[Rfam]
Nucleotides: 080
Base pairs, nucleotide, nucleotide: 012037013036017032018031019030020029021028022027040074041073042072043071045070046069047068048065049064050063051062052061053060054059
Number, partner (000 for none) and nucleotide at each position: 001000g002000u003000u004000g005000a006000u007000a008000a009000a010000u011000g012037c013036c014000a015000c016000a017032g018031c019030c020029g021028u022027c023000g024000u025000g026000a027022g028021g029020c030019g031018g032017u033000g034000u035000c036013g037012g038000a039000a040074a041073g042072c043071c044000a045070c046069g047068g048065a049064u050063c051062u052061c053060u054059u055000u056000g057000a058000a059054a060053a061052g062051a063050g064049a065048u066000g067000g068047c069046c070045g071043g072042g073041u074040u075000a076000c077000c078000u079000u080000c

About this RNA: This 80-nucleotide sequence from Candidatus Electrothrix aarhusensis belongs to the Rfam family "c-di-GMP-I riboswitch aptamer". Gene Ontology term of the family: cyclic-di-GMP binding. Pairs were carried over by alignment from the consensus structure, which is taken from published work.